[Rfam]
Nucleotides: 140
Stems, first nucleotide, its partner, number of pairs: 002046007021033005
Number, partner (000 for none) and nucleotide at each position: 001000g002046u003045u004044u005043c006042c007041g008040a009000g010000g011000a012000g013000c014000g015000u016000u017000g018000c019000g020000a021033c022032g023031g024030g025029c026000c027000c028000c029025g030024c031023c032022c033021g034000c035000c036000a037000g038000g039000c040008u041007c042006g043005g044004a045003a046002a047000u048000g049000g050000u051000c052000a053000a054000c055000c056000g057000a058000g059000c060000g061000g062000u063000g064000u065000g066000u067000c068000g069000g070000c071000g072000c073000a074000g075000c076000a077000u078000c079000g080000u081000c082000g083000c084000a085000u086000a087000g088000c089000g090000g091000c092000g093000a094000u095000c096000g097000u098000u099000u100000c101000c102000g103000c104000c105000g106000a107000g108000a109000c110000c111000g112000g113000c114000c115000g116000c117000u118000u119000a120000c121000u122000u123000g124000a125000a126000c127000g128000g129000c130000g131000c132000u133000c134000a135000c136000g137000u138000c139000a140000c